[Rfam]
RNA sequence: ACACGGGAGAGGAGGUGGUCCAGCGUUGUAUAGCUACAGGACUCGUGAGGUGGCUGUCCGCUAGCACCACGCUCGAUGGUGGGACCGCGUAGCGGUUCCGCUGGAGACGGUCGUGGAAGCCGGUGUGGUGCCGGCGAAUCCAAGGCAGUCACCGUGAUCCCCGGGCCCGAGCCCGUCCAGCUCGGCGUGCGCACCACCGGUGCGGCCCGGGGAUCACGCAUGU
Numbered sequence: 001a002c003a004c005g006g007g008a009g010a011g012g013a014g015g016u017g018g019u020c021c022a023g024c025g026u027u028g029u030a031u032a033g034c035u036a037c038a039g040g041a042c043u044c045g046u047g048a049g050g051u052g053g054c055u056g057u058c059c060g061c062u063a064g065c066a067c068c069a070c071g072c073u074c075g076a077u078g079g080u081g082g083g084a085c086c087g088c089g090u091a092g093c094g095g096u097u098c099c100g101c102u103g104g105a106g107a108c109g110g111u112c113g114u115g116g117a118a119g120c121c122g123g124u125g126u127g128g129u130g131c132c133g134g135c136g137a138a139u140c141c142a143a144g145g146c147a148g149u150c151a152c153c154g155u156g157a158u159c160c161c162c163g164g165g166c167c168c169g170a171g172c173c174c175g176u177c178c179a180g181c182u183c184g185g186c187g188u189g190c191g192c193a194c195c196a197c198c199g200g201u202g203c204g205g206c207c208c209g210g211g212g213a214u215c216a217c218g219c220a221u222g223u
Base pairs, nucleotide, nucleotide: 014058015057016056017055018054019053059136060135061134062133064131065130067128068127069126070125073123074122154217155216156215157214158213159212160211161210162209163208164207165206166205167185168184169183170182171181172180
Dot-bracket structure: .............((((((.................................))))))((((.((.((((..((...............................................)).)))).)).)))).................(((((((((((((((((((.......))))))...................)))))))))))))......